[Rfam]
RNA sequence: GGCAAUUUAUCCGAUAUAGAACACUCAUAUCGAUAAAAUGAUUUGAGCUGGUU
Number, nucleotide and partner (000 for none) at each position: 001g000002g000003c000004a000005a000006u000007u000008u000009a000010u000011c000012c032013g031014a030015u029016a028017u027018a000019g000020a000021a000022c000023a000024c000025u000026c000027a017028u016029a015030u014031c013032g012033a000034u000035a000036a000037a000038a000039u000040g000041a000042u000043u000044u000045g000046a000047g000048c000049u000050g000051g000052u000053u000

The record is a 53-nucleotide RNA from Macleaya cordata, which matches "Plastid-atpF group II-D1 intron" in Rfam.
Lineage of the source: Eukaryota > Tracheophyta > Euphyllophyta > Spermatophyta > Macleaya.
The family has 49 seed sequences and 1,372 matches in Rfam 15.1.
Rfam links the family to the GO term Group II intron splicing.
For this family Rfam cites "Retrograde signaling in plants: A critical review focusing on the GUN pathway and beyond" (Richter et al., Plant Commun, 2023).
Plastid atpF is a non-coding RNA (ncRNA) recognised in plastids.